This 118-nucleotide RNA sequence from Actinobacteria bacterium OK074 belongs to the Rfam family "Streptomyces-metK RNA".
The organism belongs to Actinomycetes, within Bacteria.

RNA sequence: UCGAGACGGGGAGGCCCGCGGCAAGGUCCGACCGAUAAACUGUUCUCGGACGAGGCCGGGCGCAGCCUCCGAGCCCGUCCGCCAAUGAUCAGCCAGCAGCCGCUGCAACCCCAGGGAG
Numbered sequence: 001u002c003g004a005g006a007c008g009g010g011g012a013g014g015c016c017c018g019c020g021g022c023a024a025g026g027u028c029c030g031a032c033c034g035a036u037a038a039a040c041u042g043u044u045c046u047c048g049g050a051c052g053a054g055g056c057c058g059g060g061c062g063c064a065g066c067c068u069c070c071g072a073g074c075c076c077g078u079c080c081g082c083c084a085a086u087g088a089u090c091a092g093c094c095a096g097c098a099g100c101c102g103c104u105g106c107a108a109c110c111c112c113a114g115g116g117a118g
Stems, first nucleotide, its partner, number of pairs: 048080005056073001057071004094105004